[Rfam]
RNA sequence: AAUAAAGGAACGCUGGCUAAGAACGUCACAUCCUGUGACAACGCCUGCGUGACCCACAUCCUGUGGG
Numbered sequence: 001a002a003u004a005a006a007g008g009a010a011c012g013c014u015g016g017c018u019a020a021g022a023a024c025g026u027c028a029c030a031u032c033c034u035g036u037g038a039c040a041a042c043g044c045c046u047g048c049g050u051g052a053c054c055c056a057c058a059u060c061c062u063g064u065g066g067g
Stems, first nucleotide, its partner, number of pairs: 011049003015045003025039005053067005
Bacillaceae-1 RNA: a 67-nucleotide RNA from Niallia endozanthoxylica. The family's RNA type in Rfam is small RNA. NCBI's taxonomy places the organism under Bacteria, Bacillati, Bacilli, Bacillaceae, Niallia. It scores 86 bits against the family's covariance model.